[Rfam]
RNA sequence: CAUUCAUUGAGAAAACUGAUGCUACUGUGUCAACGAUUCGUUAUCAGUGCAGGAAAAUGCCUGUUAGCGUAAAAGCAAAACACAAAUCUAUCCAUGCAAGCAUUCACCGCCGGUUUACUGGCGGUUUUUUUUCGCCGUCAUAAAAAUCAGGCCCCUUGUACACAACUGUAACAAGGGGCCGGUUAGGUGAGGGAUUAUCUCCGUUCAUUAGUCA
Numbered sequence: 001c002a003u004u005c006a007u008u009g010a011g012a013a014a015a016c017u018g019a020u021g022c023u024a025c026u027g028u029g030u031c032a033a034c035g036a037u038u039c040g041u042u043a044u045c046a047g048u049g050c051a052g053g054a055a056a057a058u059g060c061c062u063g064u065u066a067g068c069g070u071a072a073a074a075g076c077a078a079a080a081c082a083c084a085a086a087u088c089u090a091u092c093c094a095u096g097c098a099a100g101c102a103u104u105c106a107c108c109g110c111c112g113g114u115u116u117a118c119u120g121g122c123g124g125u126u127u128u129u130u131u132u133c134g135c136c137g138u139c140a141u142a143a144a145a146a147u148c149a150g151g152c153c154c155c156u157u158g159u160a161c162a163c164a165a166c167u168g169u170a171a172c173a174a175g176g177g178g179c180c181g182g183u184u185a186g187g188u189g190a191g192g193g194a195u196u197a198u199c200u201c202c203g204u205u206c207a208u209u210a211g212u213c214a
Stems, first nucleotide, its partner, number of pairs: 018031005039069005045063003049060003106125008147182002150180010160169003
About this RNA: The family of this 214-nucleotide RNA from Escherichia coli is "STnc560 Hfq binding RNA". Taxonomically the source falls in Escherichia coli K-12 (Bacteria, Gammaproteobacteria, Enterobacteriaceae, Escherichia coli). The base pairs follow the family's consensus structure, which was predicted with WAR. It is annotated as a small RNA.